The family of this 76-nucleotide RNA sequence from Orthoflavivirus ilheusense is "General Flavivirus exoribonuclease-resistant RNA element". The exoribonuclease-resistant RNA elements (xrRNA) are described throughout all groups of flaviviruses. Usually, each virus harbors two xrRNAs, xrRNA1 and xrRNA2, in the beginning of the 3' UTR. The formation of these stem-loops, especially xrRNA1, is vital to ensure resistance against XRN1 activity. The Y-shaped stem-loop is also termed SL II and SL IV, respectively. The base pairs follow the family's consensus structure, which was predicted with LocARNA. Rfam classes the family as a cis-regulatory element.
RNA sequence: AGAAGUCAGGCCGUCCUUGGACGCCACCCAAAGCAUGGGAGGGUGCUGCCUGCGACAAGCCCCAGGAGGACUGGGU
Numbered sequence: 001a002g003a004a005g006u007c008a009g010g011c012c013g014u015c016c017u018u019g020g021a022c023g024c025c026a027c028c029c030a031a032a033g034c035a036u037g038g039g040a041g042g043g044u045g046c047u048g049c050c051u052g053c054g055a056c057a058a059g060c061c062c063c064a065g066g067a068g069g070a071c072u073g074g075g076u
Stems, first nucleotide, its partner, number of pairs: 005056002007052005012023004027039003061075005